[Rfam]
RNA: c-di-GMP-I riboswitch aptamer
RNA sequence: GUUGUAAAAAGCCACAGCUGUCGUGAGGCAGUGUCGGAAAGCUGCGGGUCUCCGAAGAGGAGAUAGCCGGGUCGCCAAC
Numbered sequence: 001g002u003u004g005u006a007a008a009a010a011g012c013c014a015c016a017g018c019u020g021u022c023g024u025g026a027g028g029c030a031g032u033g034u035c036g037g038a039a040a041g042c043u044g045c046g047g048g049u050c051u052c053c054g055a056a057g058a059g060g061a062g063a064u065a066g067c068c069g070g071g072u073c074g075c076c077a078a079c
Stems, first nucleotide, its partner, number of pairs: 012037002017032006041072003045069003048064006
Dot-bracket structure: ...........((...((((((....))))))...))...(((.(((((((((.....))))))..)))))).......